A member of the RNA family "RT-2 RNA", 155 nucleotides long.
RNA sequence: GGGGAAACCCUAAAACUGCCCUUUGAUACCCUUGCACGGACGCUAUUUGCAUGGCGGGGAAUUGUGCCGAACCCGUUUCAUGUGCCGGGGUUACACAGUUUAGACGCACACCAACAAGAUAACUGCACGGAGAGCGAAUUUUAUUAUGACCAGUC
Numbered sequence: 001g002g003g004g005a006a007a008c009c010c011u012a013a014a015a016c017u018g019c020c021c022u023u024u025g026a027u028a029c030c031c032u033u034g035c036a037c038g039g040a041c042g043c044u045a046u047u048u049g050c051a052u053g054g055c056g057g058g059g060a061a062u063u064g065u066g067c068c069g070a071a072c073c074c075g076u077u078u079c080a081u082g083u084g085c086c087g088g089g090g091u092u093a094c095a096c097a098g099u100u101u102a103g104a105c106g107c108a109c110a111c112c113a114a115c116a117a118g119a120u121a122a123c124u125g126c127a128c129g130g131a132g133a134g135c136g137a138a139u140u141u142u143a144u145u146a147u148g149a150c151c152a153g154u155c
Base pairs, nucleotide, nucleotide: 001010002009003008018135019134021132022131023130024129025128027127028091029090030089031088032087034085035084036083037082042050043049053077054076055075056074057073058072096125097124098123099122101121103112